c-di-AMP riboswitch aptamer (ydaO/yuaA leader): a 174-nucleotide RNA from Promicromonospora citrea.
[Rfam]
RNA sequence: AGGUCCGGACGCCGAGCCCUGUCACCGGACCUGGCAGCUAGACGUGACAGGGGCGGGGGAACCAGGUAAGCGGGCACGUGAGUGUCCUUGGGGUGAAGCCUCGUACGAGGCCGGGUGAUCGCUCUCCUACCCGAACCCGACAGCUCACCUCGCAGGCGUCCGAGGAGAACACAG
Numbered sequence: 001a002g003g004u005c006c007g008g009a010c011g012c013c014g015a016g017c018c019c020u021g022u023c024a025c026c027g028g029a030c031c032u033g034g035c036a037g038c039u040a041g042a043c044g045u046g047a048c049a050g051g052g053g054c055g056g057g058g059g060a061a062c063c064a065g066g067u068a069a070g071c072g073g074g075c076a077c078g079u080g081a082g083u084g085u086c087c088u089u090g091g092g093g094u095g096a097a098g099c100c101u102c103g104u105a106c107g108a109g110g111c112c113g114g115g116u117g118a119u120c121g122c123u124c125u126c127c128u129a130c131c132c133g134a135a136c137c138c139g140a141c142a143g144c145u146c147a148c149c150u151c152g153c154a155g156g157c158g159u160c161c162g163a164g165g166a167g168a169a170c171a172c173a174g
Stems, first nucleotide, its partner, number of pairs: 010158004017052009053153006063090004091138003099110004113132004